[Rfam]
RNA sequence: UCACUUCCUAUUCAUGAAAUUGCGUCUAUAUAUGUCAUGUUCGCUUCGGCGGACUAUGGCGAUAAAUGAUGAUGUGUAAUAGAUGCAGCGGACCCGGGGGCAGUACCCGGCGGCUCCACCAAAAUGGUCGAUUAUGUUAAAUGAUUGGCAAUAUUGACGGGGCCGAACCAGGAUCGACGUGUGUUCAAAGGCAUUAUUUUCACCCGGGCUGAGUAACCCGCUAUAGGCUCAAAACUUAUAAGUGCAAACGAUAACGAAGCACUUGCUCUUGCAGCGUAAUUGACGCCCUAACGGGAUAGAUUACUAAACAAGAACGCGGCCGAACCGGCCGGGCAACAGGAAGGUUACAGC
Numbered sequence: 001u002c003a004c005u006u007c008c009u010a011u012u013c014a015u016g017a018a019a020u021u022g023c024g025u026c027u028a029u030a031u032a033u034g035u036c037a038u039g040u041u042c043g044c045u046u047c048g049g050c051g052g053a054c055u056a057u058g059g060c061g062a063u064a065a066a067u068g069a070u071g072a073u074g075u076g077u078a079a080u081a082g083a084u085g086c087a088g089c090g091g092a093c094c095c096g097g098g099g100g101c102a103g104u105a106c107c108c109g110g111c112g113g114c115u116c117c118a119c120c121a122a123a124a125u126g127g128u129c130g131a132u133u134a135u136g137u138u139a140a141a142u143g144a145u146u147g148g149c150a151a152u153a154u155u156g157a158c159g160g161g162g163c164c165g166a167a168c169c170a171g172g173a174u175c176g177a178c179g180u181g182u183g184u185u186c187a188a189a190g191g192c193a194u195u196a197u198u199u200u201c202a203c204c205c206g207g208g209c210u211g212a213g214u215a216a217c218c219c220g221c222u223a224u225a226g227g228c229u230c231a232a233a234a235c236u237u238a239u240a241a242g243u244g245c246a247a248a249c250g251a252u253a254a255c256g257a258a259g260c261a262c263u264u265g266c267u268c269u270u271g272c273a274g275c276g277u278a279a280u281u282g283a284c285g286c287c288c289u290a291a292c293g294g295g296a297u298a299g300a301u302u303a304c305u306a307a308a309c310a311a312g313a314a315c316g317c318g319g320c321c322g323a324a325c326c327g328g329c330c331g332g333g334c335a336a337c338a339g340g341a342a343g344g345u346u347a348c349a350g351c
Stems, first nucleotide, its partner, number of pairs: 039054005058204002061201002069197007084183003088180003094110005111165007205220004210231003317331004322348001324346001326344001

A member of the RNA family "Alphaproteobacteria transfer-messenger RNA" from Allosphingorhabdus lutea, 351 nucleotides long. It scores 217 bits against the family's covariance model. Rfam's curators write: Bacterial tmRNA, also known as 10Sa RNA or SsrA, is named for its dual tRNA and mRNA-like properties. Its role is to liberate the mRNA from a stalled ribosome. To accomplish this part of the tmRNA is used as a reading frame that ends in a translation stop signal. The organism belongs to Allosphingorhabdus, within Bacteria. The base pairs follow the family's consensus structure, which is taken from published work.